Shown here is a 189-nucleotide RNA sequence from Laceyella tengchongensis, a member of the family "Lysine riboswitch aptamer". On this family, see Mandal et al., Cell 2003: "Riboswitches Control Fundamental Biochemical Pathways in Bacillus subtilis and Other Bacteria". Gene Ontology term of the family: lysine biosynthetic process. The match comes from Rfam's covariance-model search (124 bits). Lineage of the source: Bacteria > Bacillota > Bacilli > Thermoactinomycetaceae > Laceyella. Rfam describes the family as follows. Riboswitches are metabolite binding domains within certain messenger RNAs that serve as precision sensors for their corresponding targets.
RNA sequence: CGGUGAGGUAGAGGUCGCGGUUUUUAUGAGUAGUUGAUUGGAGACACAGAGAAGUCGGCGAAAAUCAAUGAAAGGAAAGACCGCCGAAGCUUCAUUGUGUUCUCUGAUCAGUGAGGCUGGGGCUGUGCUCGAAUAGGGGCAGCACUGUCACAUUUGCCUGCCAAGCAAAUGUGUUGCGCUAUCUUGCGG
Numbered sequence: 001c002g003g004u005g006a007g008g009u010a011g012a013g014g015u016c017g018c019g020g021u022u023u024u025u026a027u028g029a030g031u032a033g034u035u036g037a038u039u040g041g042a043g044a045c046a047c048a049g050a051g052a053a054g055u056c057g058g059c060g061a062a063a064a065u066c067a068a069u070g071a072a073a074g075g076a077a078a079g080a081c082c083g084c085c086g087a088a089g090c091u092u093c094a095u096u097g098u099g100u101u102c103u104c105u106g107a108u109c110a111g112u113g114a115g116g117c118u119g120g121g122g123c124u125g126u127g128c129u130c131g132a133a134u135a136g137g138g139g140c141a142g143c144a145c146u147g148u149c150a151c152a153u154u155u156g157c158c159u160g161c162c163a164a165g166c167a168a169a170u171g172u173g174u175u176g177c178g179c180u181a182u183c184u185u186g187c188g189g
Stems, first nucleotide, its partner, number of pairs: 006184006017084009033069007088118010119146002122143005128137002149173008